About this RNA:
Rfam assigns this 85-nucleotide sequence from Sporanaerobacter sp. PP17-6a to the family "c-di-GMP-I-GGC riboswitch aptamer". The family is grouped with related families in Rfam's "c-di-GMP_I riboswitch clan".
RNA sequence: ACCGAUAAAGGCAAAUUUACCGAAAGGUAGAGACGCAAAGCUAUAGGGUCUUCCUUAUAAAAAAGAUGACAGCCAGUUACCGAAA
Numbered sequence: 001a002c003c004g005a006u007a008a009a010g011g012c013a014a015a016u017u018u019a020c021c022g023a024a025a026g027g028u029a030g031a032g033a034c035g036c037a038a039a040g041c042u043a044u045a046g047g048g049u050c051u052u053c054c055u056u057a058u059a060a061a062a063a064a065g066a067u068g069a070c071a072g073c074c075a076g077u078u079a080c081c082g083a084a085a
Stems, first nucleotide, its partner, number of pairs: 003082002011036002016031006034072001039078004046074002048070003